[Rfam]
The family of this 298-nucleotide RNA sequence from Funneliformis geosporum is "RNase MRP". NCBI's taxonomy places the organism under Eukaryota, Fungi, Glomeromycota, Glomerales, Funneliformis. The family's RNA type in Rfam is ribozyme. Rfam's curators write: RNase MRP is an enzymatically active ribonucleoprotein with two distinct roles in eukaryotes. In mitochondria it plays a direct role in the initiation of mitochondrial DNA replication. The match comes from Rfam's covariance-model search (127 bits).
RNA sequence: GAGCACCCUAAAGAAUCGCUGUCAAAGUAUCACAUACGGAGCAUUAAUCUUUUGAUUUUUAGCUCUUUUCUAUUACUUUGGGGAAAGUCCUCGGACACAUGACAGAAAGUGUCGCCCAUAAUGAGGCAUAACCGAUUCGUAUCAAAUGACCUUCCUUACGACCAAAGAAGAGUUUUACUCGAGGUUAUUGGAAGUGUCGCGAUUCGGUUUUGUUGGUCAUAGCACAGUUAUGCGAUUGUAGCUUCUUUCUGUAAAAGGAGAGAGGUUAUAACACAACGAGGCUUACUCUUAGGAUGCU
Numbered sequence: 001g002a003g004c005a006c007c008c009u010a011a012a013g014a015a016u017c018g019c020u021g022u023c024a025a026a027g028u029a030u031c032a033c034a035u036a037c038g039g040a041g042c043a044u045u046a047a048u049c050u051u052u053u054g055a056u057u058u059u060u061a062g063c064u065c066u067u068u069u070c071u072a073u074u075a076c077u078u079u080g081g082g083g084a085a086a087g088u089c090c091u092c093g094g095a096c097a098c099a100u101g102a103c104a105g106a107a108a109g110u111g112u113c114g115c116c117c118a119u120a121a122u123g124a125g126g127c128a129u130a131a132c133c134g135a136u137u138c139g140u141a142u143c144a145a146a147u148g149a150c151c152u153u154c155c156u157u158a159c160g161a162c163c164a165a166a167g168a169a170g171a172g173u174u175u176u177a178c179u180c181g182a183g184g185u186u187a188u189u190g191g192a193a194g195u196g197u198c199g200c201g202a203u204u205c206g207g208u209u210u211u212g213u214u215g216g217u218c219a220u221a222g223c224a225c226a227g228u229u230a231u232g233c234g235a236u237u238g239u240a241g242c243u244u245c246u247u248u249c250u251g252u253a254a255a256a257g258g259a260g261a262g263a264g265g266u267u268a269u270a271a272c273a274c275a276a277c278g279a280g281g282c283u284u285a286c287u288c289u290u291a292g293g294a295u296g297c298u
Stems, first nucleotide, its partner, number of pairs: 002298004007293005014237006022081007039065004085284003089281004101113004114129001117126001119124001131210001138206002141203003147199004160186004170180004239268012